[Rfam]
RNA sequence: GUUUUGGUUGGUGCAAAUCUAAUCACCUGAAUUUAAGAUGAUAAGCAAUUCUCCAUUGGUAACAAAAGGCUAUCCAUUAAGCGGAAUAAAUCUUAUU
Numbered sequence: 001g002u003u004u005u006g007g008u009u010g011g012u013g014c015a016a017a018u019c020u021a022a023u024c025a026c027c028u029g030a031a032u033u034u035a036a037g038a039u040g041a042u043a044a045g046c047a048a049u050u051c052u053c054c055a056u057u058g059g060u061a062a063c064a065a066a067a068g069g070c071u072a073u074c075c076a077u078u079a080a081g082c083g084g085a086a087u088a089a090a091u092c093u094u095a096u097u
Base pairs, nucleotide, nucleotide: 008022009021010020011019052085053084054083055077056076058074059073060072061071063069
The record is a 97-nucleotide sequence from Dorcoceras hygrometricum, which matches "Plastid-rps12 3UTR RNA" in Rfam. It is one of the family's seed sequences. The family's consensus secondary structure was predicted with LocARNA. It is annotated as a cis-regulatory element. About the family: Plastid rpl20 is a non-coding RNA (ncRNA) recognised in plastids.